[Rfam]
RNA sequence: GGAGCGUCAUCGUAAUAGUAAUUGAACUUAGUACGAGAGGAACCGUUCAUUCAGAUAAUUGGUAUUUGCGCCUGUCCGAUCGGGCAAUGGCGCGAAGCUAUCAUCUGCUGGAUUAUGGCUGAACGCCUCUAAGUCAGAAUCCGUGCUAGAAACGAUGAUUUAUGUCCCGCAUGUGUUAGUUGCGUUGGAAUAGAGCUUUGCUCGUGCACCAAAUCAGGCGGAUUGUGCAGUCUUGGCGGAAAUGCUUUGGCUGUUUAUCUGCGAAUUGUAAUGAUCAUAUGUGCGGGGAUGAAUCCUUUGCAGACGACUUGAAUGGGAACGGGGUACUGUAAGCAGUAGAGUAGCCUUGUUGCUACGAUCUGCUGAGGUUAAGCCCUUGUUCUAAAGAUUUGU
Dot-bracket structure: .....((((((((..((((.(.(((((.................))))).)(((((...(((....(((((.(((((....)))))...)))))...)))..))))).(((....(((((...........)))))....))).))))...))))))))......(((((((............................................................................................................)))))))...(((((.(..(.......)..)....(((((((((.((.....((((.(..(((((......)))))..)))))....))....))).))))))...)))))..
Annotation:
The record is a 393-nucleotide part of an RNA from Auriculariales sp. MPI-PUGE-AT-0066, which matches "Eukaryotic large subunit ribosomal RNA" in Rfam. The base pairs follow the family's consensus structure, which is taken from published work. The source organism's lineage runs through Eukaryota, Opisthokonta, Basidiomycota, Agaricomycetes and Auriculariales.